[Rfam]
RNA sequence: UUUAUCCAAGUUAAUAGUAACUGUAUAACCUCAAGAAUAUGGCUUGAGGGUCUCUACCAGGAACCAUAAAAUCCUGAUUACAGAAAAUGAUUUUUUUUCA
Numbered sequence: 001u002u003u004a005u006c007c008a009a010g011u012u013a014a015u016a017g018u019a020a021c022u023g024u025a026u027a028a029c030c031u032c033a034a035g036a037a038u039a040u041g042g043c044u045u046g047a048g049g050g051u052c053u054c055u056a057c058c059a060g061g062a063a064c065c066a067u068a069a070a071a072u073c074c075u076g077a078u079u080a081c082a083g084a085a086a087a088u089g090a091u092u093u094u095u096u097u098u099c100a
Base pairs, nucleotide, nucleotide: 018086021083022082023081024080025079029049030048031047032046033045034044035043058076059075060074061073062072

Shown here is a 100-nucleotide sequence from Solibacillus silvestris, a member of the family "Purine riboswitch aptamer".
The base pairs follow the family's consensus structure, which is taken from published work.